This 148-nucleotide RNA sequence from Aspergillus wentii belongs to the Rfam family "A. fumigatus sRNA Afu_254". By type it is a small RNA. Pairs were carried over by alignment from the consensus structure, which was predicted with WAR.
RNA sequence: UCAAUCAUCCAAUCUACAAACAAAACUAUUUAUCUAUCUUUUUCGAAGUUCAUCUUCACCACCAAAUCAACCAUGUCUCCCUGCUCCUGCAACUGCUGCUCCGGCAACUGCAACUCUUGCUCUUGCAACAGCUGCACCGUCAGUCUCC
Numbered sequence: 001u002c003a004a005u006c007a008u009c010c011a012a013u014c015u016a017c018a019a020a021c022a023a024a025a026c027u028a029u030u031u032a033u034c035u036a037u038c039u040u041u042u043u044c045g046a047a048g049u050u051c052a053u054c055u056u057c058a059c060c061a062c063c064a065a066a067u068c069a070a071c072c073a074u075g076u077c078u079c080c081c082u083g084c085u086c087c088u089g090c091a092a093c094u095g096c097u098g099c100u101c102c103g104g105c106a107a108c109u110g111c112a113a114c115u116c117u118u119g120c121u122c123u124u125g126c127a128a129c130a131g132c133u134g135c136a137c138c139g140u141c142a143g144u145c146u147c148c
Stems, first nucleotide, its partner, number of pairs: 082106004089099003110135003119126002